About this RNA: Rfam assigns this 548-nucleotide part of an RNA from Trichuris suis to the family "Eukaryotic small subunit ribosomal RNA". The family is grouped with related families in Rfam's "SSU clan". Gene Ontology terms of the family: ribosome and structural constituent of ribosome. The family's consensus secondary structure is taken from published work.

RNA sequence: AAAGUUGCUGCGGUUAAACCGCUCGUAGUUGGAUUGCGGAUGUCGACGACGGUCGUCCUAAGCAGGAGUCGUUCCGUCGCUCGUCACCUGUUCGAUCAAGAUUGCCCUGGAUGCUCUUCAGUGAGUGUCCUUGGCGACUUGAAAGUUUACUUUGAGAAAAUGGAAGCGCUCAAGGCAAGCCGUGAUGCUUGAACCGUGGUGCAUGGAAUAAUAGAAAGAUGGCCUCAGUGCUAUUUUGUUGGUUUGCGGCUAUGAGGCAAUGAUUAAAAGAGACAGACGGGGACAUUCGUAUUGCUGCGUUAGAGGUGAAAUUCUUGGAUCGCAGCAAGACGACCAAUUGCGAAAGCAUUUGUCAAGAAUGUUUUCAUUAAUCAAGAACGAAAGUUAGAGGUUCGAAGGCGAUCAGAUACCGCCCUAGUUGUGACCGUAAACGAUGCCAACCAGCGAUUCGGCGACGUUCUUUUUAUGACUCGCUGAGCAGCUUCCGGGAAACCAAAGUGUUUCGGUUCCGGGGGAAGUAUGGUUGCAAAGCUGAAACUUAAAGGAAU
Numbered sequence: 001a002a003a004g005u006u007g008c009u010g011c012g013g014u015u016a017a018a019c020c021g022c023u024c025g026u027a028g029u030u031g032g033a034u035u036g037c038g039g040a041u042g043u044c045g046a047c048g049a050c051g052g053u054c055g056u057c058c059u060a061a062g063c064a065g066g067a068g069u070c071g072u073u074c075c076g077u078c079g080c081u082c083g084u085c086a087c088c089u090g091u092u093c094g095a096u097c098a099a100g101a102u103u104g105c106c107c108u109g110g111a112u113g114c115u116c117u118u119c120a121g122u123g124a125g126u127g128u129c130c131u132u133g134g135c136g137a138c139u140u141g142a143a144a145g146u147u148u149a150c151u152u153u154g155a156g157a158a159a160a161u162g163g164a165a166g167c168g169c170u171c172a173a174g175g176c177a178a179g180c181c182g183u184g185a186u187g188c189u190u191g192a193a194c195c196g197u198g199g200u201g202c203a204u205g206g207a208a209u210a211a212u213a214g215a216a217a218g219a220u221g222g223c224c225u226c227a228g229u230g231c232u233a234u235u236u237u238g239u240u241g242g243u244u245u246g247c248g249g250c251u252a253u254g255a256g257g258c259a260a261u262g263a264u265u266a267a268a269a270g271a272g273a274c275a276g277a278c279g280g281g282g283a284c285a286u287u288c289g290u291a292u293u294g295c296u297g298c299g300u301u302a303g304a305g306g307u308g309a310a311a312u313u314c315u316u317g318g319a320u321c322g323c324a325g326c327a328a329g330a331c332g333a334c335c336a337a338u339u340g341c342g343a344a345a346g347c348a349u350u351u352g353u354c355a356a357g358a359a360u361g362u363u364u365u366c367a368u369u370a371a372u373c374a375a376g377a378a379c380g381a382a383a384g385u386u387a388g389a390g391g392u393u394c395g396a397a398g399g400c401g402a403u404c405a406g407a408u409a410c411c412g413c414c415c416u417a418g419u420u421g422u423g424a425c426c427g428u429a430a431a432c433g434a435u436g437c438c439a440a441c442c443a444g445c446g447a448u449u450c451g452g453c454g455a456c457g458u459u460c461u462u463u464u465u466a467u468g469a470c471u472c473g474c475u476g477a478g479c480a481g482c483u484u485c486c487g488g489g490a491a492a493c494c495a496a497a498g499u500g501u502u503u504c505g506g507u508u509c510c511g512g513g514g515g516a517a518g519u520a521u522g523g524u525u526g527c528a529a530a531g532c533u534g535a536a537a538c539u540u541a542a543a544g545g546a547a548u
Stems, first nucleotide, its partner, number of pairs: 011511003021379001023377002028372003270366004274361002278357001282354004288332002292328008303314003340347002384425004389420001394418001398414004436507003440499002443483003448478008457470003487494002513540003522533004